[Rfam]
Shown here is a 183-nucleotide sequence from Yersinia frederiksenii, a member of the family "IscS-1 ICR thermometer". It is one of the family's seed sequences. Taxonomically the source falls in Yersinia frederiksenii (Bacteria, Pseudomonadati, Enterobacterales, Yersiniaceae). Imprinting control region from upstream of iscS-1 (cysteine desulfurase).

RNA sequence: CCAAGAUAUUCUUGAGGUAGCGGAUCGUCAAAAUAACGAUACGCGCCGUACGGCCAAUGGCCGACCGCAAGAGACGAUUAACGUCAAUCUGCGCGCAUAAGCAGAAUCUGCGGAAUUUUACGUUUUGGAAGUGAUGUACGGAGCAUAAGAGCAAUGACCGAAUCAAAAGUAAAGACACCGAUC
Numbered sequence: 001c002c003a004a005g006a007u008a009u010u011c012u013u014g015a016g017g018u019a020g021c022g023g024a025u026c027g028u029c030a031a032a033a034u035a036a037c038g039a040u041a042c043g044c045g046c047c048g049u050a051c052g053g054c055c056a057a058u059g060g061c062c063g064a065c066c067g068c069a070a071g072a073g074a075c076g077a078u079u080a081a082c083g084u085c086a087a088u089c090u091g092c093g094c095g096c097a098u099a100a101g102c103a104g105a106a107u108c109u110g111c112g113g114a115a116u117u118u119u120a121c122g123u124u125u126u127g128g129a130a131g132u133g134a135u136g137u138a139c140g141g142a143g144c145a146u147a148a149g150a151g152c153a154a155u156g157a158c159c160g161a162a163u164c165a166a167a168a169g170u171a172a173a174g175a176c177a178c179c180g181a182u183c
Base pairs, nucleotide, nucleotide: 001128002127003126004125005124006123007122014049016047017046018045020044021043022042025039026038027037028036051063052062053061054060055059065113066112067111068110069109071107078100079099080098082095083094084093132165133164134163135162139160140159141158144156145155146154